[Rfam]
RNA sequence: CUGUGUCUUGCUUCAACAGUGUUUGGACGCCCCAG
Numbered sequence: 001c002u003g004u005g006u007c008u009u010g011c012u013u014c015a016a017c018a019g020u021g022u023u024u025g026g027a028c029g030c031c032c033c034a035g
Base pairs, nucleotide, nucleotide: 001035002034003033005031008029010028012027013026014025015024016023017021
A member of the RNA family "Iron response element I" from Myotis lucifugus, 35 nucleotides long.
A search with the family's covariance model found it, with a score of 40 bits.
The family's consensus secondary structure is taken from published work.
The family's RNA type in Rfam is cis-regulatory element.
On this family, see Hentze et al., Science 1987: "Identification of the iron-responsive element for the translational regulation of human ferritin mRNA".
Gene Ontology term of the family: response to iron ion.